[Rfam]
Nucleotides: 068
Base pairs, nucleotide, nucleotide: 010026011025012024013023016059017058021054038049039048040047041046
Number, partner (000 for none) and nucleotide at each position: 001000c002000a003000g004000c005000u006000u007000a008000a009000a010026g011025g012024a013023g014000a015000u016059g017058g018000c019000u020000a021054u022000c023013c024012u025011c026010c027000u028000u029000a030000u031000a032000c033000a034000a035000a036000c037000c038049g039048c040047c041046a042000a043000u044000u045000c046041u047040g048039g049038c050000u051000g052000a053000u054021g055000a056000u057000a058017c059016c060000u061000a062000c063000g064000u065000u066000u067000c068000c